[Rfam]
RNA sequence: UGUGACGAGUACCAGCGUUCAGCCCCGGCUUGCUGGUCGGCAACCCUCCUCCGCGGCGGGGUGCCCCGGGUGAACACACGGCCACCCCUGGCAAGCGCGGGCC
Numbered sequence: 001u002g003u004g005a006c007g008a009g010u011a012c013c014a015g016c017g018u019u020c021a022g023c024c025c026c027g028g029c030u031u032g033c034u035g036g037u038c039g040g041c042a043a044c045c046c047u048c049c050u051c052c053g054c055g056g057c058g059g060g061g062u063g064c065c066c067c068g069g070g071u072g073a074a075c076a077c078a079c080g081g082c083c084a085c086c087c088c089u090g091g092c093a094a095g096c097g098c099g100g101g102c103c
Stems, first nucleotide, its partner, number of pairs: 001078004009038001011037006021030002039065003044061003048056002081092004
The family of this 103-nucleotide sequence from Microlunatus parietis is "SAM (S-adenosyl methionine) riboswitch aptamer". SAM-IV is a mRNA element that regulates gene expression via direct sensing of S-adenosylmethionine (SAM or AdoMet). The base pairs follow the family's consensus structure, which is taken from published work. The source organism's lineage runs through Bacteria, Bacillati, Actinomycetota, Propionibacteriaceae and Microlunatus.